[Rfam]
RNA sequence: UUCAGGAGUAGAAGCAGUCAGGCGCCAUACCGGCGUCGGGUCAUUGCUCCUUUU
Numbered sequence: 001u002u003c004a005g006g007a008g009u010a011g012a013a014g015c016a017g018u019c020a021g022g023c024g025c026c027a028u029a030c031c032g033g034c035g036u037c038g039g040g041u042c043a044u045u046g047c048u049c050c051u052u053u054u
Base pairs, nucleotide, nucleotide: 005050006049007048008047009046010045015039019040021037022036023035024034025033026032
RNA: Xanthine riboswitch aptamer (NMT1 RNA)
Organism: Ciceribacter sp. L1K22